[Rfam]
RNA sequence: GAUUGGACACUUAAACGCCACACACGCAUCGGCACCGCCUUCGGGGUGCCGUGGCAUGCCCACCACAUGAUACGGGCUGCCGCGGUCGAAGCCGGGGAUGCGUGGAGGUCCCAAC
Numbered sequence: 001g002a003u004u005g006g007a008c009a010c011u012u013a014a015a016c017g018c019c020a021c022a023c024a025c026g027c028a029u030c031g032g033c034a035c036c037g038c039c040u041u042c043g044g045g046g047u048g049c050c051g052u053g054g055c056a057u058g059c060c061c062a063c064c065a066c067a068u069g070a071u072a073c074g075g076g077c078u079g080c081c082g083c084g085g086u087c088g089a090a091g092c093c094g095g096g097g098a099u100g101c102g103u104g105g106a107g108g109u110c111c112c113a114a115c
Base pairs, nucleotide, nucleotide: 023104024103025102026101027100028099029098030097035095036094037093039091040090041089042088043087048086049085050084051083052082053081054080055079056078
Shown here is a 115-nucleotide RNA from Dyella soli, a member of the family "t44 RNA". Rfam describes the family as follows. This family consists of a number of bacterial RNA genes of between 135 and 170 bases in length. The t44 gene has been identified in several species of enteric bacteria but homologs have also been identified in Pseudomonas and Coxiella species. The t44 gene is found between the map and rpsB genes in all species in the full alignment apart from Shigella flexneri. By type it is a small RNA. A search with the family's covariance model found it, with a score of 64 bits.